Shown here is an 84-nucleotide RNA sequence from Cicer arietinum, a member of the family "Small nucleolar RNA Z221/R21b". It scores 76 bits against the family's covariance model. Taxonomically the source falls in Cicer (Eukaryota, Viridiplantae, Pentapetalae, fabids). Rfam links the family to the GO terms RNA processing and nucleolus. Pairs were carried over by alignment from the consensus structure, which was predicted with WAR.
RNA sequence: GGGCUGUGAUGAUAGAGAUGUCAUGCACCACUCUGAUUGUUCAGUGCUGAUAAUUUUCUCAUACCCAUUAUAUAAUCUGAGCCC
Numbered sequence: 001g002g003g004c005u006g007u008g009a010u011g012a013u014a015g016a017g018a019u020g021u022c023a024u025g026c027a028c029c030a031c032u033c034u035g036a037u038u039g040u041u042c043a044g045u046g047c048u049g050a051u052a053a054u055u056u057u058c059u060c061a062u063a064c065c066c067a068u069u070a071u072a073u074a075a076u077c078u079g080a081g082c083c084c
Stems, first nucleotide, its partner, number of pairs: 001084004